mir-84 microRNA precursor family: a 76-nucleotide RNA sequence from Dracunculus medinensis.
Pairs were carried over by alignment from the consensus structure, which was predicted with RNAalifold.
Lineage of the source: Eukaryota > Eumetazoa > Chromadorea > Dracunculoidea > Dracunculus.
RNA sequence: AAGGCUGCUGAGGUAGUUUACAAAGCUGCGAGUGCACUUUAUUCCAUCGCAGAUUUUAAACUAACUCGCCAGCCUA
Numbered sequence: 001a002a003g004g005c006u007g008c009u010g011a012g013g014u015a016g017u018u019u020a021c022a023a024a025g026c027u028g029c030g031a032g033u034g035c036a037c038u039u040u041a042u043u044c045c046a047u048c049g050c051a052g053a054u055u056u057u058a059a060a061c062u063a064a065c066u067c068g069c070c071a072g073c074c075u076a
Base pairs, nucleotide, nucleotide: 003074004073005072010067011066012065014063015062016061017060022056023055024054027051028050029049